[Rfam]
Record summary:
Shown here is a 79-nucleotide RNA from Salmo salar, a member of the family "Vault RNA". The family's consensus secondary structure is taken from published work. This family of RNAs are found as part of the enigmatic vault ribonucleoprotein complex. The family's RNA type in Rfam is non-coding RNA gene. The source organism's lineage runs through Eukaryota, Opisthokonta, Bilateria, Gnathostomata and Salmo.

Nucleotides: 079
Base pairs, nucleotide, nucleotide: 002074003073004072005071006070007069012063013062014061017059018058019057020056025050027048028047029046
Number, partner (000 for none) and nucleotide at each position: 001000a002074u003073g004072c005071c006070a007069g008000u009000u010000u011000a012063g013062c014061u015000g016000a017059g018058u019057g020056g021000u022000u023000u024000c025050u026000u027048c028047u029046u030000a031000u032000g033000g034000a035000c036000a037000u038000a039000c040000a041000c042000c043000u044000u045000c046029a047028g048027g049000u050025a051000u052000c053000a054000a055000u056020c057019c058018g059017c060000a061014g062013g063012u064000g065000c066000u067000c068000u069007c070006u071005g072004g073003c074002g075000u076000u077000u078000u079000u